[Rfam]
RNA sequence: CUCUCCAUCAAAGGCAUGUCUGUGGUUCCCUGUCUUUGGACAUGUAAGAAUUAGAGGCAAAGAAAUGUGGAUUGAGGAAUCUGGAGCCUGCUUGUUCCCUGCAGGACUCAAGAUCCACUAUCCCAUAUAG
Numbered sequence: 001c002u003c004u005c006c007a008u009c010a011a012a013g014g015c016a017u018g019u020c021u022g023u024g025g026u027u028c029c030c031u032g033u034c035u036u037u038g039g040a041c042a043u044g045u046a047a048g049a050a051u052u053a054g055a056g057g058c059a060a061a062g063a064a065a066u067g068u069g070g071a072u073u074g075a076g077g078a079a080u081c082u083g084g085a086g087c088c089u090g091c092u093u094g095u096u097c098c099c100u101g102c103a104g105g106a107c108u109c110a111a112g113a114u115c116c117a118c119u120a121u122c123c124c125a126u127a128u129a130g
Stems, first nucleotide, its partner, number of pairs: 002057004015044007024030002069123003073120001090107001091105005
Source information: The record is a 130-nucleotide sequence from Tupaia belangeri, which matches "Small nucleolar RNA SNORA38" in Rfam. It is annotated as an H/ACA-box small nucleolar RNA. A search with the family's covariance model found it, with a score of 117 bits. About the family: ACA38 is a member of the H/ACA class of snoRNA that guide the sites of modification of uridines to pseudouridines. NCBI's taxonomy places the organism under Eukaryota, Metazoa, Vertebrata, Tetrapoda, Tupaia belangeri.